[Rfam]
RNA sequence: AGGCAUUCUGAAGAUCUGUUAACUAGGCUACCCGCUGAGAACUUAGUUUCUCUCGAUAACUCCGCCUAGGGGAAAGUCCCCGGACCCAUGGCAGAGAGUGCCUUGCUUAGUUGCAUUGAUCCUGUUUGCAUGCUUACAUUCAACAGCUAAGAAGUCCACGGGACUGAGCGGGUGAGAGCAAAUGGGAUCCUGUCAAUGUAACGCAGUAACGCAGGUGAUGUACGAUUCUACCAAAUACAUCAACAGAACGGGGCUCACUCUCAGAAUGUU
Numbered sequence: 001a002g003g004c005a006u007u008c009u010g011a012a013g014a015u016c017u018g019u020u021a022a023c024u025a026g027g028c029u030a031c032c033c034g035c036u037g038a039g040a041a042c043u044u045a046g047u048u049u050c051u052c053u054c055g056a057u058a059a060c061u062c063c064g065c066c067u068a069g070g071g072g073a074a075a076g077u078c079c080c081c082g083g084a085c086c087c088a089u090g091g092c093a094g095a096g097a098g099u100g101c102c103u104u105g106c107u108u109a110g111u112u113g114c115a116u117u118g119a120u121c122c123u124g125u126u127u128g129c130a131u132g133c134u135u136a137c138a139u140u141c142a143a144c145a146g147c148u149a150a151g152a153a154g155u156c157c158a159c160g161g162g163a164c165u166g167a168g169c170g171g172g173u174g175a176g177a178g179c180a181a182a183u184g185g186g187a188u189c190c191u192g193u194c195a196a197u198g199u200a201a202c203g204c205a206g207u208a209a210c211g212c213a214g215g216u217g218a219u220g221u222a223c224g225a226u227u228c229u230a231c232c233a234a235a236u237a238c239a240u241c242a243a244c245a246g247a248a249c250g251g252g253g254c255u256c257a258c259u260c261u262c263a264g265a266a267u268g269u270u
Base pairs, nucleotide, nucleotide: 002270003269004268005267006266007265008264009263010262011261014216015215016214017213018212019211023069024068025067026066027065028064037052038051039050040049041048075255076254078253079252080251081250090102091101092100093099104115105114106113120187121186122185124183125182126181127180128179129178133176134175135174136173144171146169147168154164155163156162157161218240219239220238221237222236

Rfam assigns this 270-nucleotide RNA sequence from Acipenser ruthenus to the family "RNase MRP".
The family's consensus secondary structure is taken from published work.
Taxonomically the source falls in Acipenser (Eukaryota, Deuterostomia, Craniata, Actinopteri).
It is annotated as a ribozyme.
The match comes from Rfam's covariance-model search (158 bits).